[Rfam]
RNA sequence: UGAUGUCCCUCACCCACCCCUGAAGAUCCCAGGUGGGCGAGGGAAUAGUGAGCGGCC
Numbered sequence: 001u002g003a004u005g006u007c008c009c010u011c012a013c014c015c016a017c018c019c020c021u022g023a024a025g026a027u028c029c030c031a032g033g034u035g036g037g038c039g040a041g042g043g044a045a046u047a048g049u050g051a052g053c054g055g056c057c
Stems, first nucleotide, its partner, number of pairs: 006044006013037006029055002